[Rfam]
RNA sequence: GCGAGCAGCUGGGCGGUCGCUGCUGAUCGCAAGAUCAGGAGAGGAAAGUCCGAACUCCGCAGGGCAGUGUGCCGGAUAACGUCCGGGAUCGAAGCGUCAAGGCUUCGAGACGGCUAGUGCCACAGAGAAGAUACCGCCUACGCCGCAAGGCGCAAGGUAAGGGUGAAAAGGUGCGGUAAGAGCGCACCGCUCCGGCGGUAACGUCGGGGGCAGGGUAAACCCCACACGGAGCAAGACCAAAUAGGGAGGGAUGCGCGGGUGAGACCCAGAUAGCCGCGCGGCGUGCCUGCCCGGCGCGCCAACGUGGGUUCUCCAGACUGGCGGGCUUGCCCCGCAAAGUGGAGCGGAAACCUUCGGGUAGGUCGCUUGAGCGCCGCAGCAAUGCGUCGCCUAGAGGAAUGACCGUCCUCGACAGAAUUCGGCUUACAGGCUGCUUGCAAUG
Dot-bracket structure: ((((((((((((((((((.((.((((((....)))))).))....[[[.[[[[[((((........((((((((((.....)))))(.(((((((......)))))))..)((...(((((............((((((.((((....))))..))))..)).......((((((.......))))))(((((((((....)))))))).)..)))..)))))))))))))...((((......(((((..........................(....................................................................).....))))).....))))......(((.((((....)))).)))..........)))))))..........]]]]]]]].).))))))))))....
Shown here is a 442-nucleotide sequence from Alloacidobacterium dinghuense, a member of the family "Bacterial RNase P class A". Lineage of the source: Bacteria > Pseudomonadati > Terriglobia > Terriglobales > Alloacidobacterium. Rfam classes the family as a ribozyme.